About this RNA
This 105-nucleotide RNA sequence belongs to the Rfam family "Purine riboswitch aptamer". The match comes from Rfam's covariance-model search (72 bits). Its family is annotated with purine nucleobase biosynthetic process in the Gene Ontology. From the family's description: Riboswitches are metabolite binding domains within certain messenger RNAs that serve as precision sensors for their corresponding targets. A reference for the family is Reining et al. (2013), "Three-state mechanism couples ligand and temperature sensing in riboswitches", Nature.
Nucleotides: 105
Base pairs, nucleotide, nucleotide: 019090020089021088022087023086024085025084029050030049031048032047033046034044059081060080061079062078063077064076065075
Number, partner (000 for none) and nucleotide at each position: 001000u002000a003000a004000u005000c006000a007000u008000u009000c010000a011000u012000a013000a014000a015000c016000a017000u018000u019090a020089c021088u022087c023086g024085u025084a026000u027000a028000u029050g030049c031048u032047c033046a034044g035000u036000a037000a038000u039000a040000u041000g042000g043000u044034c045000u046033u047032g048031a049030g050029c051000g052000u053000u054000u055000c056000u057000a058000c059081c060080u061079a062078g063077u064076u065075c066000c067000c068000a069000a070000u071000g072000a073000a074000a075065g076064a077063a078062c079061u080060g081059g082000a083000c084025u085024a086023c087022g088021a089020g090019u091000u092000a093000a094000a095000g096000u097000a098000g099000u100000a101000u102000u103000g104000g105000u